[Rfam]
RNA sequence: UGCCUUUGUGUUGCCCUUUCAUUUUUCCCUAGUGAAAGGGGUGUCAGAAAAGGCACACAUUGACUAUUGUCGUUGUCUGAGGAAAUGGCUAAUCUCUAAGCCUUUCUCAAAGAGUAACUGCAAGGACAUGU
Numbered sequence: 001u002g003c004c005u006u007u008g009u010g011u012u013g014c015c016c017u018u019u020c021a022u023u024u025u026u027c028c029c030u031a032g033u034g035a036a037a038g039g040g041g042u043g044u045c046a047g048a049a050a051a052g053g054c055a056c057a058c059a060u061u062g063a064c065u066a067u068u069g070u071c072g073u074u075g076u077c078u079g080a081g082g083a084a085a086u087g088g089c090u091a092a093u094c095u096c097u098a099a100g101c102c103u104u105u106c107u108c109a110a111a112g113a114g115u116a117a118c119u120g121c122a123a124g125g126a127c128a129u130g131u
Base pairs, nucleotide, nucleotide: 002054003053004052005051006050007049009046010045012043013042014041015040016038017037018036019035020034021033022032023031067123068122069121072118073117074116075115076114082108083107084105085104089100090099
Shown here is a 131-nucleotide RNA sequence from Merluccius polli, a member of the family "Small nucleolar RNA SNORA13". A search with the family's covariance model found it, with a score of 69 bits. Rfam classes the family as an H/ACA-box small nucleolar RNA. Rfam links the family to the GO terms nucleolus and RNA processing. Rfam describes the family as follows. ACA13 is a member of the H/ACA class of snoRNA that guide the sites of modification of uridines to pseudouridines. The family's consensus secondary structure was predicted with CMfinder. Clan: SNORA13 clan. Rfam 15.1 lists 1,034 matches to the family in 605 species.